Source information: Bacillus sRNA ncr1241: a 64-nucleotide sequence from Bacillus salinus.
RNA sequence: UAUAAGGCUUUCUAGUAUUCCCCCCUUUUUAUUUGGACAAAACCAGUUGGUUAUGUCCUUUUUU
Numbered sequence: 001u002a003u004a005a006g007g008c009u010u011u012c013u014a015g016u017a018u019u020c021c022c023c024c025c026u027u028u029u030u031a032u033u034u035g036g037a038c039a040a041a042a043c044c045a046g047u048u049g050g051u052u053a054u055g056u057c058c059u060u061u062u063u064u
Stems, first nucleotide, its partner, number of pairs: 004027004035058005041052004
About this RNA
It scores 67 bits against the family's covariance model. For this family Rfam cites "Identification of regulatory RNAs in Bacillus subtilis" (Irnov et al., Nucleic Acids Res, 2010).